This 94-nucleotide sequence from Levilactobacillus brevis belongs to the Rfam family "THF (Tetrahydrofolate) riboswitch aptamer". About the family: Tetrahydrofolate (THF) riboswitch was first reported for Ames et al. as an RNA motif in 5' untranslated (5'-UTR)regions of folate transport and biosynthesis genes in Firmicutes genomes. Its family is annotated with tetrahydrofolate metabolic process in the Gene Ontology.

RNA sequence: CGGAGUAGGAAAUAAAGCGUCAAGUGCCGGUGGAACGCAAUGUGAACACCGGACGAAGGGCAAUUGGCCCGCGAUUUUAUUUCCGCAUUGGCCG
Number, nucleotide and partner (000 for none) at each position: 001c094002g093003g092004a000005g000006u000007a000008g084009g083010a082011a081012a080013u079014a078015a077016a076017g075018c073019g072020u071021c000022a000023a000024g054025u053026g000027c052028c051029g050030g049031u048032g047033g000034a000035a000036c000037g000038c090039a089040a088041u087042g086043u000044g000045a000046a000047c032048a031049c030050c029051g028052g027053a025054c024055g000056a000057a000058g070059g069060g068061c067062a000063a000064u000065u000066g000067g061068c060069c059070c058071g020072c019073g018074a000075u017076u016077u015078u014079a013080u012081u011082u010083c009084c008085g000086c042087a041088u040089u039090g038091g000092c003093c002094g001